[Rfam]
RNA: c-di-AMP riboswitch aptamer (ydaO/yuaA leader)
RNA sequence: GCGGACCGGACGCCGAGUCCCGGUGGCGCCCCCGCGUCCCCGGGAGCCGGGGACCCACUGCUCCUGGGGUGAAUCCGCCGUGUGCGGUAGGGCGACUCCUGGCCCGAACCCGUCAGCUAACCCGGUAGGCGGUCCUGAAGGAGAGU
Numbered sequence: 001g002c003g004g005a006c007c008g009g010a011c012g013c014c015g016a017g018u019c020c021c022g023g024u025g026g027c028g029c030c031c032c033c034g035c036g037u038c039c040c041c042g043g044g045a046g047c048c049g050g051g052g053a054c055c056c057a058c059u060g061c062u063c064c065u066g067g068g069g070u071g072a073a074u075c076c077g078c079c080g081u082g083u084g085c086g087g088u089a090g091g092g093c094g095a096c097u098c099c100u101g102g103c104c105c106g107a108a109c110c111c112g113u114c115a116g117c118u119a120a121c122c123c124g125g126u127a128g129g130c131g132g133u134c135c136u137g138a139a140g141g142a143g144a145g146u
Base pairs, nucleotide, nucleotide: 011131012130013129014128018045019044020043021042022041023040046126047125048124049123050122051121056066057065067111068110069109075087076086077085078084090105091104092103093102